[Rfam]
RNA sequence: GACUUAAUGUGUCGAGCAAGCUUAAGCCGUUAGGUGUAGGCGAAGCGAAAGCGAGUCUGAAUAGGGCGUGAAGUUCGACGUAUUAGACCCGAAACCGGGUGAUCUAGCCAUGAGCAGGUUGAAGGUGCGGUAACACGCACUGGAGGACCGAACCGGUGCCUGUUGAAAAAGUCUCGGAUGACUUGUGGCUAGGGGUGAAAGGCCAACCAAACUCGGAAAUAGCUGGUU
Numbered sequence: 001g002a003c004u005u006a007a008u009g010u011g012u013c014g015a016g017c018a019a020g021c022u023u024a025a026g027c028c029g030u031u032a033g034g035u036g037u038a039g040g041c042g043a044a045g046c047g048a049a050a051g052c053g054a055g056u057c058u059g060a061a062u063a064g065g066g067c068g069u070g071a072a073g074u075u076c077g078a079c080g081u082a083u084u085a086g087a088c089c090c091g092a093a094a095c096c097g098g099g100u101g102a103u104c105u106a107g108c109c110a111u112g113a114g115c116a117g118g119u120u121g122a123a124g125g126u127g128c129g130g131u132a133a134c135a136c137g138c139a140c141u142g143g144a145g146g147a148c149c150g151a152a153c154c155g156g157u158g159c160c161u162g163u164u165g166a167a168a169a170a171g172u173c174u175c176g177g178a179u180g181a182c183u184u185g186u187g188g189c190u191a192g193g194g195g196u197g198a199a200a201g202g203c204c205a206a207c208c209a210a211a212c213u214c215g216g217a218a219a220u221a222g223c224u225g226g227u228u
Base pairs, nucleotide, nucleotide: 005085006084007083008082009081010080011079012078013077014076015075016074017073020041021040022039023038026035027034028033045052046051055067056066057065058064088226089225091223095216096215097214098213099212100211104192105191106190107189108188109187110186111185112184113183114182115180117149118148119147120146124141125140126139127138128137129136153177154176155175158173160171161170194204195203196202
Rfam assigns this 228-nucleotide part of an RNA from Methylopila turkensis to the family "Bacterial large subunit ribosomal RNA". A search with the family's covariance model found it, with a score of 2743 bits. NCBI's taxonomy places the organism under Bacteria, Pseudomonadota, Hyphomicrobiales, Methylopilaceae, Methylopila.